[Rfam]
RNA sequence: UCUCGAUAAAGGCAAACCCCGCGAAAGCGGGCGACGCAAAGCUACAGGGGCUAAGGACGCGAUGAAGGCGCGUUACGCCAGCCAGCUGCCGAA
Numbered sequence: 001u002c003u004c005g006a007u008a009a010a011g012g013c014a015a016a017c018c019c020c021g022c023g024a025a026a027g028c029g030g031g032c033g034a035c036g037c038a039a040a041g042c043u044a045c046a047g048g049g050g051c052u053a054a055g056g057a058c059g060c061g062a063u064g065a066a067g068g069c070g071c072g073u074u075a076c077g078c079c080a081g082c083c084a085g086c087u088g089c090c091g092a093a
Stems, first nucleotide, its partner, number of pairs: 012037002018031005040087004047083002049079003057073004
This 93-nucleotide RNA from Cohnella candida belongs to the Rfam family "c-di-GMP-I riboswitch aptamer". About the family: GEMM was predicted in a large-scale screen for bacterial structured RNA regulatory elements. The family's consensus secondary structure is taken from published work. NCBI's taxonomy places the organism under Bacteria, Bacillati, Bacilli, Caryophanales, Cohnella. Rfam links the family to the GO term cyclic-di-GMP binding.